The family of this 107-nucleotide sequence from Populus tomentosa is "MIR6450 microRNA precursor family". The family has 2 seed sequences and 53 matches in Rfam 15.1.
RNA sequence: AUGACUCAAUUCUCUUGGGUCCUGUGUCUGGAUCAAGUACUUUUGGGUCCUACAACAGGACCCAGUGUUAUGAGGUCUGGUGUUAGGACUCAAGGCUAUUGGGUCUU
Numbered sequence: 001a002u003g004a005c006u007c008a009a010u011u012c013u014c015u016u017g018g019g020u021c022c023u024g025u026g027u028c029u030g031g032a033u034c035a036a037g038u039a040c041u042u043u044u045g046g047g048u049c050c051u052a053c054a055a056c057a058g059g060a061c062c063c064a065g066u067g068u069u070a071u072g073a074g075g076u077c078u079g080g081u082g083u084u085a086g087g088a089c090u091c092a093a094g095g096c097u098a099u100u101g102g103g104u105c106u107u
Stems, first nucleotide, its partner, number of pairs: 001107001003105007013095012029079006037071001043065008
Lineage of the source: Eukaryota > Embryophyta > Magnoliopsida > Mesangiospermae > Populus.